[Rfam]
A member of the RNA family "Eukaryotic large subunit ribosomal RNA" from Cladophialophora carrionii, 227 nucleotides of a longer RNA. On this family, see Yusupov et al., Science 2001: "Crystal structure of the ribosome at 5.5 A resolution". Taxonomically the source falls in Cladophialophora (Eukaryota, Ascomycota, Pezizomycotina, leotiomyceta). A search with the family's covariance model found it, with a score of 3220 bits. The base pairs follow the family's consensus structure, which is taken from published work.

RNA sequence: CGCUUGCAACCAGACUUGAGCGCGACGGUUCCCCUAGCCUUUUGGCUAGGUUACUCCGUCGUGUCCAGGCCAACAUCGGUUCUGAGGGUCGGUCAAAGGCUCUGGGAAUGUAUCUACCCACGGGUAGACUUAUAGACCAGGGUGUCAUGCGACCUCUCGGGACCGAGGAACGCGCUUCGGCUCGGAUGUUGGCGUAAUGGUUGUCAGCGACCCGUCUUGAAACACGG
Numbered sequence: 001c002g003c004u005u006g007c008a009a010c011c012a013g014a015c016u017u018g019a020g021c022g023c024g025a026c027g028g029u030u031c032c033c034c035u036a037g038c039c040u041u042u043u044g045g046c047u048a049g050g051u052u053a054c055u056c057c058g059u060c061g062u063g064u065c066c067a068g069g070c071c072a073a074c075a076u077c078g079g080u081u082c083u084g085a086g087g088g089u090c091g092g093u094c095a096a097a098g099g100c101u102c103u104g105g106g107a108a109u110g111u112a113u114c115u116a117c118c119c120a121c122g123g124g125u126a127g128a129c130u131u132a133u134a135g136a137c138c139a140g141g142g143u144g145u146c147a148u149g150c151g152a153c154c155u156c157u158c159g160g161g162a163c164c165g166a167g168g169a170a171c172g173c174g175c176u177u178c179g180g181c182u183c184g185g186a187u188g189u190u191g192g193c194g195u196a197a198u199g200g201u202u203g204u205c206a207g208c209g210a211c212c213c214g215u216c217u218u219g220a221a222a223c224a225c226g227g
Stems, first nucleotide, its partner, number of pairs: 001209004006204007017067002020064005071191007212227004